[Rfam]
A member of the RNA family "Bacterial RNase P class A" from Amphritea balenae, 372 nucleotides long.

RNA sequence: AGAGUUCGCCAGACAAUCGCCGCCCUAAUCUCUUGAGUGCAGGGGGGAGGAAAGUCCGGGCUCCAGCAGGGCAGGGUGCCAGGUAACGCCUGGGGGGCGCAAGCCUACGGAAAGUGCAGCAGAGAGCAGACCGCCUAAGUUUUUUAUUUUCGGAUAGAAAACCGGUAAGGGUGAAAGGGUGCGGUAAGAGCGCACCGCGUGAGUGGCAACACUUCAUGGCAUGGUAAACCCCACCUGGAGCAAGACCAAAUAGGAAUCCAUUAAGGUGUGGCCCACACUGGAUUCGGGUAGGUCGCUUGAGAUCUGUGGCGACGCAGGUCCUAGAUGAAUGAUUGUCCACGACAAAACCCGGCUUAUCGGCGAGCUCUACAG
Numbered sequence: 001a002g003a004g005u006u007c008g009c010c011a012g013a014c015a016a017u018c019g020c021c022g023c024c025c026u027a028a029u030c031u032c033u034u035g036a037g038u039g040c041a042g043g044g045g046g047g048a049g050g051a052a053a054g055u056c057c058g059g060g061c062u063c064c065a066g067c068a069g070g071g072c073a074g075g076g077u078g079c080c081a082g083g084u085a086a087c088g089c090c091u092g093g094g095g096g097g098c099g100c101a102a103g104c105c106u107a108c109g110g111a112a113a114g115u116g117c118a119g120c121a122g123a124g125a126g127c128a129g130a131c132c133g134c135c136u137a138a139g140u141u142u143u144u145u146a147u148u149u150u151c152g153g154a155u156a157g158a159a160a161a162c163c164g165g166u167a168a169g170g171g172u173g174a175a176a177g178g179g180u181g182c183g184g185u186a187a188g189a190g191c192g193c194a195c196c197g198c199g200u201g202a203g204u205g206g207c208a209a210c211a212c213u214u215c216a217u218g219g220c221a222u223g224g225u226a227a228a229c230c231c232c233a234c235c236u237g238g239a240g241c242a243a244g245a246c247c248a249a250a251u252a253g254g255a256a257u258c259c260a261u262u263a264a265g266g267u268g269u270g271g272c273c274c275a276c277a278c279u280g281g282a283u284u285c286g287g288g289u290a291g292g293u294c295g296c297u298u299g300a301g302a303u304c305u306g307u308g309g310c311g312a313c314g315c316a317g318g319u320c321c322u323a324g325a326u327g328a329a330u331g332a333u334u335g336u337c338c339a340c341g342a343c344a345a346a347a348c349c350c351g352g353c354u355u356a357u358c359g360g361c362g363a364g365c366u367c368u369a370c371a372g
Stems, first nucleotide, its partner, number of pairs: 001368010011357001012337007020047002023044004052355003056352005061240004069274004074236005079093005094108001095106004109231002114229002116225002131170002133166003139162010178196006197220001198218005203212003244294004254285006265279005301320008

Rfam's curators write: Ribonuclease P (RNase P) is a ubiquitous endoribonuclease, found in archaea, bacteria and eukarya as well as chloroplasts and mitochondria. NCBI's taxonomy places the organism under Bacteria, Pseudomonadota, Oceanospirillales, Oceanospirillaceae, Amphritea. The match comes from Rfam's covariance-model search (329 bits).